[Rfam]
RNA sequence: CACCGAAAACAGCAAACCUGUCGAAAGGCGGGGACGCAAAACCAUGGGUCUGAGGCCGCUAGGCUACGACUGUCAGGUUGCUGAA
Numbered sequence: 001c002a003c004c005g006a007a008a009a010c011a012g013c014a015a016a017c018c019u020g021u022c023g024a025a026a027g028g029c030g031g032g033g034a035c036g037c038a039a040a041a042c043c044a045u046g047g048g049u050c051u052g053a054g055g056c057c058g059c060u061a062g063g064c065u066a067c068g069a070c071u072g073u074c075a076g077g078u079u080g081c082u083g084a085a
Stems, first nucleotide, its partner, number of pairs: 012037002017032006040079004045075003048070003055064003